Background:
Nitrogen stress-induced RNA 1: a 64-nucleotide RNA sequence from Rivularia sp. PCC 7116. NCBI's taxonomy places the organism under Bacteria, Cyanobacteriota, Cyanophyceae, Rivulariaceae, Rivularia. For this family Rfam cites "Heterocyst-specific transcription of NsiR1, a non-coding RNA encoded in a tandem array of direct repeats in cyanobacteria" (Ionescu et al., J Mol Biol, 2010).
RNA sequence: UGGUAGAUGCACCCUGAUAACUAACUCCCCCGGUAAGCCUACAAGCGCGCUGGGGGUUUUUUGU
Numbered sequence: 001u002g003g004u005a006g007a008u009g010c011a012c013c014c015u016g017a018u019a020a021c022u023a024a025c026u027c028c029c030c031c032g033g034u035a036a037g038c039c040u041a042c043a044a045g046c047g048c049g050c051u052g053g054g055g056g057u058u059u060u061u062u063g064u
Stems, first nucleotide, its partner, number of pairs: 002013003027056008037046002